[Rfam]
RNA sequence: GUGCAGCCCUUUCCAGCGAGGCCAAGCCUGCAGUGGCUCUGUCCUUUCCUGUAGUGUCUGCUAGAGAGAUGUGAGGCUGUUUGAGGCCCUGCUUUGACUCUUCAUAGCAGGGUUAUAGGUAAACCUCAGACACAC
Numbered sequence: 001g002u003g004c005a006g007c008c009c010u011u012u013c014c015a016g017c018g019a020g021g022c023c024a025a026g027c028c029u030g031c032a033g034u035g036g037c038u039c040u041g042u043c044c045u046u047u048c049c050u051g052u053a054g055u056g057u058c059u060g061c062u063a064g065a066g067a068g069a070u071g072u073g074a075g076g077c078u079g080u081u082u083g084a085g086g087c088c089c090u091g092c093u094u095u096g097a098c099u100c101u102u103c104a105u106a107g108c109a110g111g112g113u114u115a116u117a118g119g120u121a122a123a124c125c126u127c128a129g130a131c132a133c134a135c
Base pairs, nucleotide, nucleotide: 003061004060005059006058008056019045020044021043025038026037027036028035072128073127074126075125076124087112088111089110090109091108092107095104096103
A member of the RNA family "Small nucleolar RNA SNORA9" from Anabas testudineus, 135 nucleotides long. ACA9 is a member of the H/ACA class of snoRNA that guide the sites of modification of uridines to pseudouridines. The family is grouped with related families in Rfam's "SNORA9 clan". Lineage of the source: Eukaryota > Actinopteri > Anabantaria > Anabantiformes > Anabas. The family's RNA type in Rfam is H/ACA-box small nucleolar RNA. The family has 36 seed sequences and 1,202 matches in Rfam 15.1. Gene Ontology terms of the family: nucleolus and RNA processing.